[Rfam]
The family of this 582-nucleotide part of an RNA from Sulfolobus acidocaldarius is "Archaeal large subunit ribosomal RNA". Its family is annotated with ribosome and structural constituent of ribosome in the Gene Ontology. The base pairs follow the family's consensus structure, which is taken from published work. The sequence is in the family's curated seed alignment. Lineage of the source: Archaea > Thermoprotei > Sulfolobaceae > Sulfolobus > Sulfolobus acidocaldarius.
RNA sequence: CUCCCUACACCGAGAGAAGACCCCGUGGAGCUUCACCGCAGCCUGGCGUUGUCCCUCGGGCGUUUAUGCGUAGAGUAGGUGGGAGGGGUCGAACCUGUCCUUUCGGGGGCAGGGGACCCGAAAGUGAAACACCACCCAUGGACGCUCGAGGGACUAACCUCUCGAAAGAGAGGAACAACGUCAGGUGGGCGGUUCGGCUGGGGCGGCACUCCCGCGAAAAGAUAACACGGGAGCCCAAAGGUCGGCUCAGGCGGUACAGAACGCCGCCGUAGAGCGCAAGGGCAAAAGCCGGCCUGACGUGACCCUUCCAAGUACGGGGUCACGACGCGAAAGCGGGGCCUAGCGAACGCUCGUGCCCCCACACGUGGGGGCCGGGCAUGACAGAAAAGUUACCCCGGGGAUAACAGGGUCGUCGCGGGCGAGAGCUCACAUCGACCCCGCGGUUUGCUACAUCGAUGUCGGCUCUUCCCACCCUGGAGGUGCAGCUGCCUCCAAGGGUAGGGCUGCCCGCCCGUUAAAGGGGAGCGUGAGCUGGGUUUAGACCGUCGCGAGACAGGUCGGACUCUAAGGGUAGGGAGUGCG
Numbered sequence: 001c002u003c004c005c006u007a008c009a010c011c012g013a014g015a016g017a018a019g020a021c022c023c024c025g026u027g028g029a030g031c032u033u034c035a036c037c038g039c040a041g042c043c044u045g046g047c048g049u050u051g052u053c054c055c056u057c058g059g060g061c062g063u064u065u066a067u068g069c070g071u072a073g074a075g076u077a078g079g080u081g082g083g084a085g086g087g088g089u090c091g092a093a094c095c096u097g098u099c100c101u102u103u104c105g106g107g108g109g110c111a112g113g114g115g116a117c118c119c120g121a122a123a124g125u126g127a128a129a130c131a132c133c134a135c136c137c138a139u140g141g142a143c144g145c146u147c148g149a150g151g152g153a154c155u156a157a158c159c160u161c162u163c164g165a166a167a168g169a170g171a172g173g174a175a176c177a178a179c180g181u182c183a184g185g186u187g188g189g190c191g192g193u194u195c196g197g198c199u200g201g202g203g204c205g206g207c208a209c210u211c212c213c214g215c216g217a218a219a220a221g222a223u224a225a226c227a228c229g230g231g232a233g234c235c236c237a238a239a240g241g242u243c244g245g246c247u248c249a250g251g252c253g254g255u256a257c258a259g260a261a262c263g264c265c266g267c268c269g270u271a272g273a274g275c276g277c278a279a280g281g282g283c284a285a286a287a288g289c290c291g292g293c294c295u296g297a298c299g300u301g302a303c304c305c306u307u308c309c310a311a312g313u314a315c316g317g318g319g320u321c322a323c324g325a326c327g328c329g330a331a332a333g334c335g336g337g338g339c340c341u342a343g344c345g346a347a348c349g350c351u352c353g354u355g356c357c358c359c360c361a362c363a364c365g366u367g368g369g370g371g372c373c374g375g376g377c378a379u380g381a382c383a384g385a386a387a388a389g390u391u392a393c394c395c396c397g398g399g400g401a402u403a404a405c406a407g408g409g410u411c412g413u414c415g416c417g418g419g420c421g422a423g424a425g426c427u428c429a430c431a432u433c434g435a436c437c438c439c440g441c442g443g444u445u446u447g448c449u450a451c452a453u454c455g456a457u458g459u460c461g462g463c464u465c466u467u468c469c470c471a472c473c474c475u476g477g478a479g480g481u482g483c484a485g486c487u488g489c490c491u492c493c494a495a496g497g498g499u500a501g502g503g504c505u506g507c508c509c510g511c512c513c514g515u516u517a518a519a520g521g522g523g524a525g526c527g528u529g530a531g532c533u534g535g536g537u538u539u540a541g542a543c544c545g546u547c548g549c550g551a552g553a554c555a556g557g558u559c560g561g562a563c564u565c566u567a568a569g570g571g572u573a574g575g576g577a578g579u580g581c582g
Stems, first nucleotide, its partner, number of pairs: 001578008010570002014565002022399004027395002029391005035193004042185007051154018078136005085119003097110005158173004196209001197207003210232005235338002241293006247273002250268006274283002298324009326335001328333001349377005355372001357371004408449003412446001413443007423433002460535001461533004465527001466524005473498002477492005501513004541559004545554003